A member of the RNA family "Archaeal large subunit ribosomal RNA" from Salinarchaeum sp. IM2453, 97 nucleotides of a longer RNA. The family has 91 seed sequences and 2,955 matches in Rfam 15.1. It scores 2849 bits against the family's covariance model.

RNA sequence: GUCGGGGCACAAAAGGCUCCAUGGAAAACGAUCUGGGGGCGACCCCACAGUAGGAUCUGUGGAGAGCCGGUGUCCCGUCGUACGUUUUGAAAAACGG
Numbered sequence: 001g002u003c004g005g006g007g008c009a010c011a012a013a014a015g016g017c018u019c020c021a022u023g024g025a026a027a028a029c030g031a032u033c034u035g036g037g038g039g040c041g042a043c044c045c046c047a048c049a050g051u052a053g054g055a056u057c058u059g060u061g062g063a064g065a066g067c068c069g070g071u072g073u074c075c076c077g078u079c080g081u082a083c084g085u086u087u088u089g090a091a092a093a094a095c096g097g
Stems, first nucleotide, its partner, number of pairs: 001079001003077008015068002019062007029053001034047005083096003